[Rfam]
RNA sequence: AUGAUGAGACUGCCGAAUUCUCGGACACAGCCGAGAAGCGGGGGAACCAAUUAGUACUGGGUGAAUUGAUCUCGCCUGAAGCAGAGAUCAUAGGGAACCUUCAACCGAACCCUCCAGCUAACCUCGCAGGCACGGAAGGAGAACAU
Numbered sequence: 001a002u003g004a005u006g007a008g009a010c011u012g013c014c015g016a017a018u019u020c021u022c023g024g025a026c027a028c029a030g031c032c033g034a035g036a037a038g039c040g041g042g043g044g045a046a047c048c049a050a051u052u053a054g055u056a057c058u059g060g061g062u063g064a065a066u067u068g069a070u071c072u073c074g075c076c077u078g079a080a081g082c083a084g085a086g087a088u089c090a091u092a093g094g095g096a097a098c099c100u101u102c103a104a105c106c107g108a109a110c111c112c113u114c115c116a117g118c119u120a121a122c123c124u125c126g127c128a129g130g131c132a133c134g135g136a137a138g139g140a141g142a143a144c145a146u
Stems, first nucleotide, its partner, number of pairs: 011132004018037007038127006059112003067090007093106002

The family of this 146-nucleotide RNA sequence from Paenibacillus aquistagni is "c-di-AMP riboswitch aptamer (ydaO/yuaA leader)". NCBI's taxonomy places the organism under Bacteria, Bacilli, Caryophanales, Paenibacillaceae, Paenibacillus. A search with the family's covariance model found it, with a score of 68 bits.